Source information
The family of this 222-nucleotide sequence from Microvirga tunisiensis is "Group II catalytic intron D1-D4-6". Rfam's curators write: Group II introns are found in rRNA, tRNA and mRNA of organelles in fungi, plants and protists, and also in mRNA in bacteria. The pairing is the family consensus, mapped onto this sequence. On this family, see Bonen and Vogel, Trends Genet 2001: "The ins and outs of group II introns".
RNA sequence: CAAGUCCAUCGCAAUGAAGGAGGAGCGAUCCACAUUGGCCCCGAGUCAUGCGCGGGCGAUCGUGAGGCCGUCCGUGAAGCGUUGACAGGGGAGCAUGCAGGCCAGCCAUUGAGCCGCGAAAGUGAUGCUUUUCGGGUGCCGACGUUUUUCUUGUGUGCGGAAGGCAACAUGAGCCGGCGCGACAGCGCGAGGGCCGGCUCGACCCGACGUGGUCAGAGACCC
Numbered sequence: 001c002a003a004g005u006c007c008a009u010c011g012c013a014a015u016g017a018a019g020g021a022g023g024a025g026c027g028a029u030c031c032a033c034a035u036u037g038g039c040c041c042c043g044a045g046u047c048a049u050g051c052g053c054g055g056g057c058g059a060u061c062g063u064g065a066g067g068c069c070g071u072c073c074g075u076g077a078a079g080c081g082u083u084g085a086c087a088g089g090g091g092a093g094c095a096u097g098c099a100g101g102c103c104a105g106c107c108a109u110u111g112a113g114c115c116g117c118g119a120a121a122g123u124g125a126u127g128c129u130u131u132u133c134g135g136g137u138g139c140c141g142a143c144g145u146u147u148u149u150c151u152u153g154u155g156u157g158c159g160g161a162a163g164g165c166a167a168c169a170u171g172a173g174c175c176g177g178c179g180c181g182a183c184a185g186c187g188c189g190a191g192g193g194c195c196g197g198c199u200c201g202a203c204c205c206g207a208c209g210u211g212g213u214c215a216g217a218g219a220c221c222c
Stems, first nucleotide, its partner, number of pairs: 012037005019031003025188002039091004045086004049081002051076008060067002110216001111214001113213006132207006138165003143159003170201009180191001